[Rfam]
RNA: small nucleolar RNA snoR135
Organism: Helianthus annuus
RNA sequence: AAAGCAGAGAUAGUGUGUAUCGGCUAUGUGCUAAAUAAGUGCACUUUGGUCGAAAGAGUUCUCUGCAAAAACAAUUUGACAGGGUGAAGGUGGGCAGUUGUGUUCCAAUUUUUCCAUUGGAAUCUUCAACAAUCAUUUUCUCCACAUUA
Numbered sequence: 001a002a003a004g005c006a007g008a009g010a011u012a013g014u015g016u017g018u019a020u021c022g023g024c025u026a027u028g029u030g031c032u033a034a035a036u037a038a039g040u041g042c043a044c045u046u047u048g049g050u051c052g053a054a055a056g057a058g059u060u061c062u063c064u065g066c067a068a069a070a071a072c073a074a075u076u077u078g079a080c081a082g083g084g085u086g087a088a089g090g091u092g093g094g095c096a097g098u099u100g101u102g103u104u105c106c107a108a109u110u111u112u113u114c115c116a117u118u119g120g121a122a123u124c125u126u127c128a129a130c131a132a133u134c135a136u137u138u139u140c141u142c143c144a145c146a147u148u149a
Stems, first nucleotide, its partner, number of pairs: 004066007015044006083143002086140008097130004